Rfam assigns this 86-nucleotide RNA from Dasypus novemcinctus to the family "Small nucleolar RNA SNORD105".
For this family Rfam cites "Identification of 13 novel human modification guide RNAs" (Vitali et al., Nucleic Acids Res, 2003).
Taxonomically the source falls in Dasypus (Eukaryota, Bilateria, Euteleostomi, Amniota).
RNA sequence: UUCCCAGCUCUCGUGAUGACUCCAUGUGCCUCUGAGCUGCCAUGAUUCUGGCUUCAAAGUAAACGCUCUGAAGAGAUGGGCAGAGG
Numbered sequence: 001u002u003c004c005c006a007g008c009u010c011u012c013g014u015g016a017u018g019a020c021u022c023c024a025u026g027u028g029c030c031u032c033u034g035a036g037c038u039g040c041c042a043u044g045a046u047u048c049u050g051g052c053u054u055c056a057a058a059g060u061a062a063a064c065g066c067u068c069u070g071a072a073g074a075g076a077u078g079g080g081c082a083g084a085g086g
Stems, first nucleotide, its partner, number of pairs: 002086002005083001007081004
Pairs were carried over by alignment from the consensus structure. Rfam's curators write: U105 belongs to the C/D family of snoRNAs. It is encoded in an intron of the Suppressor of SWI4 1 homolog (Ssf-1) (Peter Pan homolog) gene. and is predicted to guide 2'O-ribose methylation of residue U799 of the small 18S rRNA subunit.